[Rfam]
RNA sequence: GAGCUGUGAAGAUCUCUGUGCUUAUGUGAUCGCAAGGGUUUAUCAGACUAAUCUGAGCGGAGAGAUGACAUUAAGAGUAUCUAAGCUC
Numbered sequence: 001g002a003g004c005u006g007u008g009a010a011g012a013u014c015u016c017u018g019u020g021c022u023u024a025u026g027u028g029a030u031c032g033c034a035a036g037g038g039u040u041u042a043u044c045a046g047a048c049u050a051a052u053c054u055g056a057g058c059g060g061a062g063a064g065a066u067g068a069c070a071u072u073a074a075g076a077g078u079a080u081c082u083a084a085g086c087u088c
Base pairs, nucleotide, nucleotide: 001088002087003086004085
This 88-nucleotide sequence from Gossypium australe belongs to the Rfam family "small nucleolar RNA snoR114". On this family, see Chen and Wu, Nucleic Acids Res 2009: "Mining small RNA sequencing data: a new approach to identify small nucleolar RNAs in Arabidopsis". NCBI's taxonomy places the organism under Eukaryota, rosids, malvids, Malvaceae, Gossypium. Pairs were carried over by alignment from the consensus structure, which was predicted with RNAalifold.